[Rfam]
Shown here is an 81-nucleotide RNA sequence from Mola mola, a member of the family "mir-181 microRNA precursor family". A search with the family's covariance model found it, with a score of 52 bits. The source organism's lineage runs through Eukaryota, Metazoa, Deuterostomia, Craniata and Mola. On this family, see Lagos-Quintana et al., RNA 2003: "New microRNAs from mouse and human".
RNA sequence: GGUUUCCGGUGAACAUUCAUCGCUGUCGGUGGGUUGGUGAUGCCGUCAACUCGCCGGUCGAUGAAUGACAACCGUGUCUGU
Numbered sequence: 001g002g003u004u005u006c007c008g009g010u011g012a013a014c015a016u017u018c019a020u021c022g023c024u025g026u027c028g029g030u031g032g033g034u035u036g037g038u039g040a041u042g043c044c045g046u047c048a049a050c051u052c053g054c055c056g057g058u059c060g061a062u063g064a065a066u067g068a069c070a071a072c073c074g075u076g077u078c079u080g081u
Base pairs, nucleotide, nucleotide: 001081005076007074008073014067015066016065017064018063019062020061021060022059025058026057027056028055029054030053031052033050034049035048036047